[Rfam]
RNA sequence: GGCCUAAAACGUCCGUAGCCGGUUUGGUACAUUCGUGGGUAAAUCAGACAGCUUAACUGUCUGAAUUCUGCGAGCACGGCCAAACUUGAGACCGGGAGAGGUGUAGGGUACCUGCGGGGUAGGGGUAAAAUCCUGUCAUCCCGUAGGGACCACCAGUUGCGAAGGCUCUACACUAGAACGGAUCUGACGGUCAGGGACGAAGCCUAGGGGCACGAACCGGAUUAGAUACCCGGGUAGUCCUAGGUGUAAACGCUGUGGACUUUGUGUCGGGAAACCUUAGAGGAUUCUCGGUGCCGGAGUGAAGAUGUUAAGUCCACUGCCUGGGGAGUACGGUCGCAAGGCUGAAACUUAAAGGAAU
Number, nucleotide and partner (000 for none) at each position: 001g321002g320003c319004c000005u000006a000007a000008a000009a318010c000011g198012u197013c196014c195015g000016u000017a000018g191019c190020c189021g000022g085023u084024u083025u082026g081027g080028u079029a000030c078031a000032u074033u073034c072035g071036u070037g069038g068039g067040u000041a000042a000043a000044u000045c063046a062047g061048a060049c059050a058051g057052c000053u000054u000055a000056a000057c051058u050059g049060u048061c047062u046063g045064a000065a000066u000067u039068c038069u037070g036071c035072g034073a033074g032075c000076a000077c000078g030079g028080c027081c026082a025083a024084a023085c022086u000087u000088g000089a185090g184091a183092c181093c180094g179095g000096g000097a000098g000099a000100g174101g173102u172103g171104u170105a169106g168107g151108g150109u000110a000111c147112c146113u145114g144115c143116g142117g141118g140119g000120u000121a000122g133123g132124g131125g000126u000127a000128a000129a000130a000131u124132c123133c122134u000135g000136u000137c000138a000139u000140c118141c117142c116143g115144u114145a113146g112147g111148g000149a000150c108151c107152a000153c000154c000155a000156g167157u000158u000159g166160c165161g000162a000163a000164g000165g160166c159167u156168c106169u105170a104171c103172a102173c101174u100175a000176g000177a000178a000179c094180g093181g092182a000183u091184c090185u089186g000187a000188c000189g020190g019191u018192c000193a000194g000195g014196g013197a012198c011199g000200a000201a000202g000203c244204c243205u242206a241207g240208g239209g000210g000211c000212a238213c237214g000215a000216a000217c233218c232219g231220g230221a000222u000223u000224a000225g000226a000227u000228a000229c000230c220231c219232g218233g217234g000235u000236a000237g213238u212239c208240c207241u206242a205243g204244g203245u000246g000247u000248a000249a000250a000251c000252g000253c000254u000255g317256u316257g315258g314259a313260c312261u000262u000263u000264g294265u293266g292267u291268c290269g289270g288271g287272a286273a285274a000275c283276c282277u000278u000279a000280g000281a000282g276283g275284a000285u273286u272287c271288u270289c269290g268291g267292u266293g265294c264295c000296g000297g000298a000299g306300u305301g000302a000303a000304g000305a300306u299307g000308u000309u000310a000311a000312g260313u259314c258315c257316a256317c255318u009319g003320c002321c001322u000323g350324g349325g348326g000327a000328g000329u000330a000331c000332g343333g342334u341335c340336g000337c000338a000339a000340g335341g334342c333343u332344g000345a000346a000347a000348c325349u324350u323351a000352a000353a000354g000355g000356a000357a000358u000

Overview
Rfam assigns this 358-nucleotide part of an RNA from uncultured marine group II euryarchaeote KM3-136-D10 to the family "Archaeal small subunit ribosomal RNA". The family is grouped with related families in Rfam's "SSU clan". A reference for the family is Cannone et al. (2002), "The comparative RNA web (CRW) site: an online database of comparative sequence and structure information for ribosomal, intron, and other RNAs", BMC Bioinformatics.